RNA sequence: GAUGGAACAGUGAUGAGCAUCCUUGUGGACUUGAGUUUCUGAUACUACCUUGGUAGUAUUAGAUGACCAAACCCUUGGCUGUUUGAGCUCUGAA
Number, nucleotide and partner (000 for none) at each position: 001g000002a000003u092004g091005g090006a089007a000008c087009a000010g000011u000012g000013a000014u000015g000016a000017g000018c000019a000020u000021c000022c000023u000024u000025g000026u000027g000028g000029a000030c000031u000032u000033g000034a000035g000036u065037u000038u063039c062040u000041g000042a000043u058044a057045c056046u055047a054048c053049c000050u000051u000052g000053g048054u047055a046056g045057u044058a043059u000060u000061a000062g039063a038064u000065g036066a000067c000068c000069a000070a000071a000072c000073c000074c000075u000076u000077g000078g000079c000080u000081g000082u000083u000084u000085g000086a000087g008088c000089u006090c005091u004092g003093a000094a000
Background:
This 94-nucleotide RNA from Digitaria exilis belongs to the Rfam family "Small nucleolar RNA Z157/R69/R10". The base pairs follow the family's consensus structure, which was predicted with PFOLD. A search with the family's covariance model found it, with a score of 62 bits. Its Rfam clan is "SNORD52 clan". For this family Rfam cites "The high diversity of snoRNAs in plants: identification and comparative study of 120 snoRNA genes from Oryza sativa" (Chen et al., Nucleic Acids Res, 2003).